[Rfam]
RNA sequence: GGAACGGGCCUUUCAGGCAUCCUCUCCUAAAACUUUCACGGCCGGUCCUUUGGAUCGGCCUUUUUUUUGUCCGUU
Number, nucleotide and partner (000 for none) at each position: 001g000002g000003a000004a000005c000006g000007g000008g018009c017010c016011u015012u000013u000014c000015a011016g010017g009018c008019a000020u000021c000022c000023u000024c000025u000026c000027c000028u000029a000030a000031a000032a000033c000034u000035u000036u000037c000038a000039c000040g060041g059042c058043c057044g056045g055046u054047c053048c052049u000050u000051u000052g048053g047054a046055u045056c044057g043058g042059c041060c040061u000062u000063u000064u000065u000066u000067u000068u000069g000070u000071c000072c000073g000074u000075u000

Record summary
Makes More Granules Regulator RNA (mmgR): a 75-nucleotide RNA from Sphingomonas aracearum. It is annotated as a small RNA. The source organism's lineage runs through Bacteria, Pseudomonadati, Pseudomonadota, Alphaproteobacteria and Sphingomonas. For this family Rfam cites "Phylogenetic distribution and evolutionary pattern of an alpha-proteobacterial small RNA gene that controls polyhydroxybutyrate accumulation in Sinorhizobium meliloti" (Lagares et al., Mol Phylogenet Evol, 2016). Rfam's curators write: SuhB later renamed mmgR (makes more granules regulator) was a putative non-coding RNA found multiple times in the Agrobacterium tumefaciens genome and related alpha-proteobacteria. Other non-coding RNAs uncovered in the same analysis include: speF, ybhL, metA, and serC.Several studies inSinorhizobium meliloti showed that suhB element is indeed a non-coding RNA:firstly it was detected on Northern blot and called Sm8RNA, secondly in an RNAseq study referred to as SmelC689.The mutant phenotype's (strain lacking the small RNA) cytoplasm contains higher content of polyhydroxybutyrate (PBH)storage granules than wild type strain. The sRNA is required to limit the PBH intracellular accumulation when the nitrogen-fixing Sinorhizobium meliloti is under condition of surplus carbon in relation to nitrogen. It has been renamed to mmgR. Further study confirmed that mmgR fine-tunes the regulation of PBH storage.Northern blot confirmed the expression of the sRNA in other rhizobia species.